[Rfam]
RNA sequence: CCUGACGCCGAGCCUGACGUGCAAUGCUUUGUGUCAACGUUUUGUUCGUUCGGCUCGCGUUAAGC
Numbered sequence: 001c002c003u004g005a006c007g008c009c010g011a012g013c014c015u016g017a018c019g020u021g022c023a024a025u026g027c028u029u030u031g032u033g034u035c036a037a038c039g040u041u042u043u044g045u046u047c048g049u050u051c052g053g054c055u056c057g058c059g060u061u062a063a064g065c
Stems, first nucleotide, its partner, number of pairs: 001064001003062001005060003009057006018048002021045004026040002
Rfam assigns this 65-nucleotide RNA sequence from Xenopus tropicalis to the family "mir-375 microRNA precursor family". The family has 47 seed sequences and 824 matches in Rfam 15.1. Pairs were carried over by alignment from the consensus structure, which was predicted with RNAalifold.